Rfam assigns this 109-nucleotide sequence from Agrobacterium tumefaciens to the family "Rhizobiales sRNA Atu_At1". The family's consensus secondary structure was predicted with CMfinder. Lineage of the source: Bacteria > Pseudomonadati > Alphaproteobacteria > Hyphomicrobiales > Agrobacterium tumefaciens complex. By type it is a small RNA.
RNA sequence: GCAGGGGCUGUGUCAACCGGACGUGAUAGGGAUGGUAGACGCAGCGGUUUUUCCGGUUUCACGCUGCGGCCUAAAACGCCUAGGUUAGAAAGCAUUACCUAUCCGGCCC
Numbered sequence: 001g002c003a004g005g006g007g008c009u010g011u012g013u014c015a016a017c018c019g020g021a022c023g024u025g026a027u028a029g030g031g032a033u034g035g036u037a038g039a040c041g042c043a044g045c046g047g048u049u050u051u052u053c054c055g056g057u058u059u060c061a062c063g064c065u066g067c068g069g070c071c072u073a074a075a076a077c078g079c080c081u082a083g084g085u086u087a088g089a090a091a092g093c094a095u096u097a098c099c100u101a102u103c104c105g106g107c108c109c
Stems, first nucleotide, its partner, number of pairs: 006108004011023004025103006036094001040068007069085003
Dot-bracket structure: .....((((.((((.....)))).((((((.....(...(((((((...............)))))))(((...........)))........)...)))))).)))).